This 142-nucleotide RNA from Schistosoma japonicum belongs to the Rfam family "U12 minor spliceosomal RNA". For this family Rfam cites "The divergent U12-type spliceosome is required for pre-mRNA splicing and is essential for development in Drosophila" (Otake et al., Mol Cell, 2002). A search with the family's covariance model found it, with a score of 78 bits. Lineage of the source: Eukaryota > Protostomia > Lophotrochozoa > Strigeidida > Schistosoma. The family is grouped with related families in Rfam's "U2 clan".

[Rfam]
RNA sequence: AUGCCUUAAACUAAUGAGUAAGGAAAAUAGCAGGUCGGUUUGAUUUACCGAUCCCCAGGAUAUCUCAGAUAUUGUUUGUGGGGUACAGGCUGCCCCGUUGUGUCCCCUACUUAGGGAUGUGACGGUGCUAGCGGCCUGCCCU
Number, nucleotide and partner (000 for none) at each position: 001a000002u000003g000004c023005c022006u021007u020008a019009a000010a000011c000012u000013a000014a000015u000016g000017a000018g000019u008020a007021a006022g005023g004024a000025a000026a000027a000028u000029a000030g000031c000032a000033g053034g052035u051036c050037g049038g048039u047040u000041u000042g000043a000044u000045u000046u000047a039048c038049c037050g036051a035052u034053c033054c000055c000056c000057a000058g063059g000060a000061u000062a000063u058064c000065u000066c000067a000068g000069a000070u000071a000072u000073u000074g000075u000076u000077u000078g000079u000080g142081g141082g140083g139084u138085a000086c000087a137088g136089g135090c134091u133092g132093c131094c000095c000096c124097g123098u122099u121100g120101u000102g118103u117104c116105c115106c114107c000108u000109a000110c000111u000112u000113a000114g106115g105116g104117a103118u102119g000120u100121g099122a098123c097124g096125g000126u000127g000128c000129u000130a000131g093132c092133g091134g090135c089136c088137u087138g084139c083140c082141c081142u080